[Rfam]
RNA sequence: UAUAUUGUUGUCUGGUAUGUAGUAGGUAAUAACUGACAAACAGAUGAUUGCCUAACGUGCCAGAAAGCAACGCA
Numbered sequence: 001u002a003u004a005u006u007g008u009u010g011u012c013u014g015g016u017a018u019g020u021a022g023u024a025g026g027u028a029a030u031a032a033c034u035g036a037c038a039a040a041c042a043g044a045u046g047a048u049u050g051c052c053u054a055a056c057g058u059g060c061c062a063g064a065a066a067g068c069a070a071c072g073c074a
Stems, first nucleotide, its partner, number of pairs: 005070005011064010023054008033043003
This 74-nucleotide sequence from Chlorocebus sabaeus belongs to the Rfam family "mir-4774 microRNA precursor family". The family's consensus secondary structure was predicted with RNAalifold.